Rfam assigns this 46-nucleotide RNA sequence from Chelydra serpentina to the family "Histone 3' UTR stem-loop". Rfam's curators write: The mRNAs of metazoan histone genes lack a poly-A tail. 3' end processing occurs at a site between a highly conserved stem-loop (modelled by this family) and a purine rich region around 20 nts downstream (the histone downstream element, or HDE). The match comes from Rfam's covariance-model search (38 bits). The base pairs follow the family's consensus structure, which is taken from published work. The family has 50 seed sequences and 44,596 matches in Rfam 15.1.
[Rfam]
RNA sequence: CCAAAGGCUCUUUUAAGAGCCACCCACCCUCUCAAUGAAGGAGCUG
Numbered sequence: 001c002c003a004a005a006g007g008c009u010c011u012u013u014u015a016a017g018a019g020c021c022a023c024c025c026a027c028c029c030u031c032u033c034a035a036u037g038a039a040g041g042a043g044c045u046g
Base pairs, nucleotide, nucleotide: 006021007020008019009018010017011016